A member of the RNA family "Small nucleolar RNA SNORD87" from Varanus komodoensis, 82 nucleotides long.
Its family is annotated with nucleolus and RNA processing in the Gene Ontology.
RNA sequence: GCUGGCACAAUGAUGAUUCCUUUUGCCGUUUACCCAUCUGAAUGUAUGCUGAUGCGCUCUAUUUUAAUUCUGAGAUGCCAGC
Numbered sequence: 001g002c003u004g005g006c007a008c009a010a011u012g013a014u015g016a017u018u019c020c021u022u023u024u025g026c027c028g029u030u031u032a033c034c035c036a037u038c039u040g041a042a043u044g045u046a047u048g049c050u051g052a053u054g055c056g057c058u059c060u061a062u063u064u065u066a067a068u069u070c071u072g073a074g075a076u077g078c079c080a081g082c
Stems, first nucleotide, its partner, number of pairs: 001082007
A reference for the family is Gogolevskaya et al. (2002), "U87 RNA, a novel C/D box small nucleolar RNA from mammalian cells", Gene. The organism belongs to Varanus, within Eukaryota. Rfam classes the family as a C/D-box small nucleolar RNA. It scores 59 bits against the family's covariance model.